Nucleotides: 102
Stems, first nucleotide, its partner, number of pairs: 018088008031047005058078007
Number, partner (000 for none) and nucleotide at each position: 001000g002000a003000u004000a005000g006000c007000a008000a009000u010000c011000g012000a013000a014000u015000a016000a017000g018088c019087c020086u021085u022084c023083g024082u025081a026000u027000a028000u029000c030000c031047u032046c033045g034044g035043c036000g037000a038000u039000a040000c041000g042000g043035g044034c045033c046032g047031a048000a049000a050000g051000u052000a053000u054000c055000u056000a057000c058078c059077g060076g061075a062074a063073c064072a065000c066000c067000g068000u069000a070000a071000a072064u073063g074062u075061u076060c077059u078058g079000a080000c081025u082024a083023u084022g085021a086020a087019g088018g089000c090000a091000g092000g093000a094000a095000c096000g097000g098000u099000g100000a101000c102000g